[Rfam]
RNA sequence: GUUGGCCGAAAGAAGGCGAAUGGGAGUGACUCAAAGGCCCUCUUUGUGUGUGGUCUAAUUCGAAUCCCGGGAAGGUCUGAGAGAAUGUCCAAAUAAGUGAUACUUAGGAAGUAUUUAGAUAAUAUUUCUUGAUAGAAAUGAGACUGUAGAAGAAAGGUUUCUCUCUAUUUCACAGAGAGAUUGGGAAACGGUCUCGGCAAGCAAUUUCUUCUGGAAAUGAUUCUGAGUGCGAUCGCCAUAUCAACACAAUUCAGACUAGUCUUCGGCCAAC
Numbered sequence: 001g002u003u004g005g006c007c008g009a010a011a012g013a014a015g016g017c018g019a020a021u022g023g024g025a026g027u028g029a030c031u032c033a034a035a036g037g038c039c040c041u042c043u044u045u046g047u048g049u050g051u052g053g054u055c056u057a058a059u060u061c062g063a064a065u066c067c068c069g070g071g072a073a074g075g076u077c078u079g080a081g082a083g084a085a086u087g088u089c090c091a092a093a094u095a096a097g098u099g100a101u102a103c104u105u106a107g108g109a110a111g112u113a114u115u116u117a118g119a120u121a122a123u124a125u126u127u128c129u130u131g132a133u134a135g136a137a138a139u140g141a142g143a144c145u146g147u148a149g150a151a152g153a154a155a156g157g158u159u160u161c162u163c164u165c166u167a168u169u170u171c172a173c174a175g176a177g178a179g180a181u182u183g184g185g186a187a188a189c190g191g192u193c194u195c196g197g198c199a200a201g202c203a204a205u206u207u208c209u210u211c212u213g214g215a216a217a218u219g220a221u222u223c224u225g226a227g228u229g230c231g232a233u234c235g236c237c238a239u240a241u242c243a244a245c246a247c248a249a250u251u252c253a254g255a256c257u258a259g260u261c262u263u264c265g266g267c268c269a270a271c
Stems, first nucleotide, its partner, number of pairs: 001271004008264003014239001016237001022068004035056005040050001077254005086199004100114005124139006140195007160180006